A member of the RNA family "Ascomycota telomerase RNA" from Cordyceps fumosorosea, 171 nucleotides of a longer RNA. The literature on the family includes a 2013 paper in Nucleic Acids Res by Qi et al., "The common ancestral core of vertebrate and fungal telomerase RNAs". It scores 227 bits against the family's covariance model. The source organism's lineage runs through Eukaryota, Fungi, Pezizomycotina, leotiomyceta and Cordyceps fumosorosea.

[Rfam]
RNA sequence: UCCACCGCUGAUUGCCCCGCGGCAUCAGCAUAUUCCUCAACUUUUGGGGUUCUGAGAGGACGAGAUGAAAGCGCGCUUUUUUGUGGAUGUCUUUUGUGCGUGCGGAAAGCUUCCCUUUUCCCAUCUUGCAUGGCAAGUGUUGGUGGGAAUGAAUCAAAAACUAGUCCUUGC
Numbered sequence: 001u002c003c004a005c006c007g008c009u010g011a012u013u014g015c016c017c018c019g020c021g022g023c024a025u026c027a028g029c030a031u032a033u034u035c036c037u038c039a040a041c042u043u044u045u046g047g048g049g050u051u052c053u054g055a056g057a058g059g060a061c062g063a064g065a066u067g068a069a070a071g072c073g074c075g076c077u078u079u080u081u082u083g084u085g086g087a088u089g090u091c092u093u094u095u096g097u098g099c100g101u102g103c104g105g106a107a108a109g110c111u112u113c114c115c116u117u118u119u120c121c122c123a124u125c126u127u128g129c130a131u132g133g134c135a136a137g138u139g140u141u142g143g144u145g146g147g148a149a150u151g152a153a154u155c156a157a158a159a160a161c162u163a164g165u166c167c168u169u170g171c
Stems, first nucleotide, its partner, number of pairs: 007029006014023003034068002036064003041058007086166003089161002092159005110151001112148004121143003126136004